This 80-nucleotide RNA sequence from Strigamia maritima belongs to the Rfam family "mir-184 microRNA precursor family".
On this family, see Chen et al., Genes Dev 2005: "The developmental miRNA profiles of zebrafish as determined by small RNA cloning".
Rfam links the family to the GO terms RISC complex and gene silencing by miRNA.
Pairs were carried over by alignment from the consensus structure, which was predicted with PFOLD.
[Rfam]
RNA sequence: UUUUCCACGUUUCCUUAUCAUUCGUCUGUCCGGUCUGUUCGGGAGAACUGGACGGAGAACUGAUAAGGGCUUGUGGGCAA
Numbered sequence: 001u002u003u004u005c006c007a008c009g010u011u012u013c014c015u016u017a018u019c020a021u022u023c024g025u026c027u028g029u030c031c032g033g034u035c036u037g038u039u040c041g042g043g044a045g046a047a048c049u050g051g052a053c054g055g056a057g058a059a060c061u062g063a064u065a066a067g068g069g070c071u072u073g074u075g076g077g078c079a080a
Stems, first nucleotide, its partner, number of pairs: 012069009021059003025056003030051002